Rfam assigns this 213-nucleotide sequence from Jatrophihabitans endophyticus to the family "Actinobacteria sRNA Ms_IGR-5". A search with the family's covariance model found it, with a score of 87 bits. The literature on the family includes a 2013 paper in RNA by Li et al., "Identification of small RNAs in Mycobacterium smegmatis using heterologous Hfq".
RNA sequence: ACACGAGGAAGGAGGUGGUCCGGAGUUGAAGACUUUCAGGACACGUGAGGUGGCGGUCCGCUAACCGCUGCACGACCAACGGACCAGCGUGGGCACUGCCCCCUGCCGCGUGUGCGGCGGCGAGCACUACCCGGAUCGCUACCCGGCCCCCGAGUCGUCGGCCCGUCCAGCCGACCCGGUCAUCCGACCGGCCCGACUCGGGGGUCGUUCAUG
Numbered sequence: 001a002c003a004c005g006a007g008g009a010a011g012g013a014g015g016u017g018g019u020c021c022g023g024a025g026u027u028g029a030a031g032a033c034u035u036u037c038a039g040g041a042c043a044c045g046u047g048a049g050g051u052g053g054c055g056g057u058c059c060g061c062u063a064a065c066c067g068c069u070g071c072a073c074g075a076c077c078a079a080c081g082g083a084c085c086a087g088c089g090u091g092g093g094c095a096c097u098g099c100c101c102c103c104u105g106c107c108g109c110g111u112g113u114g115c116g117g118c119g120g121c122g123a124g125c126a127c128u129a130c131c132c133g134g135a136u137c138g139c140u141a142c143c144c145g146g147c148c149c150c151c152g153a154g155u156c157g158u159c160g161g162c163c164c165g166u167c168c169a170g171c172c173g174a175c176c177c178g179g180u181c182a183u184c185c186g187a188c189c190g191g192c193c194c195g196a197c198u199c200g201g202g203g204g205u206c207g208u209u210c211a212u213g
Stems, first nucleotide, its partner, number of pairs: 014058003018054002060125003065120001067118004072113003144207013157175006
Dot-bracket structure: .............(((.((.................................)).))).(((..(.((((.(((....................................))).)))).)..)))..................(((((((((((((((((((.......))))))...................)))))))))))))......